RNA: Bacteroidetes FopS (family of paralogous sRNAs)
Organism: Hoylesella pleuritidis
RNA sequence: GUGUUUUUCAUAGUAUUAGAUUUAAGGUUAACAAGGUCGGGCCCAGCGGGGCCCAUUUUUUUUAC
Numbered sequence: 001g002u003g004u005u006u007u008u009c010a011u012a013g014u015a016u017u018a019g020a021u022u023u024a025a026g027g028u029u030a031a032c033a034a035g036g037u038c039g040g041g042c043c044c045a046g047c048g049g050g051g052c053c054c055a056u057u058u059u060u061u062u063u064a065c
Base pairs, nucleotide, nucleotide: 039054040053041052042051043050044049